[Rfam]
RNA sequence: AUGUAAUUUUAGAUUCCUCCACUUUAAUUAGUCCCUCAUUUUUCAUGCCAUGUAUGCAGAUUCGGCUGACAUGGUGGAAUGAGGGACCAAAAGUGGAAGAAUAUGAAAUUACAG
Numbered sequence: 001a002u003g004u005a006a007u008u009u010u011a012g013a014u015u016c017c018u019c020c021a022c023u024u025u026a027a028u029u030a031g032u033c034c035c036u037c038a039u040u041u042u043u044c045a046u047g048c049c050a051u052g053u054a055u056g057c058a059g060a061u062u063c064g065g066c067u068g069a070c071a072u073g074g075u076g077g078a079a080u081g082a083g084g085g086a087c088c089a090a091a092a093g094u095g096g097a098a099g100a101a102u103a104u105g106a107a108a109u110u111a112c113a114g
Stems, first nucleotide, its partner, number of pairs: 004111008013102004018097008029089001031087012047075007056066002059063001
Rfam assigns this 114-nucleotide RNA sequence from Medicago truncatula to the family "MIR5284 microRNA precursor family". Its family is annotated with RISC complex and miRNA-mediated post-transcriptional gene silencing in the Gene Ontology. The match comes from Rfam's covariance-model search (99 bits).